[Rfam]
RNA sequence: AGAAAACAAAAACCCGCGUCCGGGUAUACGCGGGUUUUUGUCUCUGUUUCCAGAGACUGGGAGAGGAGAAACCGGAGGAAGAGCUUAUGGGGAAACCUAAGUCUUCUCCGCGG
Numbered sequence: 001a002g003a004a005a006a007c008a009a010a011a012a013c014c015c016g017c018g019u020c021c022g023g024g025u026a027u028a029c030g031c032g033g034g035u036u037u038u039u040g041u042c043u044c045u046g047u048u049u050c051c052a053g054a055g056a057c058u059g060g061g062a063g064a065g066g067a068g069a070a071a072c073c074g075g076a077g078g079a080a081g082a083g084c085u086u087a088u089g090g091g092g093a094a095a096c097c098u099a100a101g102u103c104u105u106c107u108c109c110g111c112g113g
Base pairs, nucleotide, nucleotide: 011036012035013034014033015032016031017030018029019028037060038059040057041056042055043054044053045052046051073110074109075108076107078106079105080104081103083102084101085100086099087098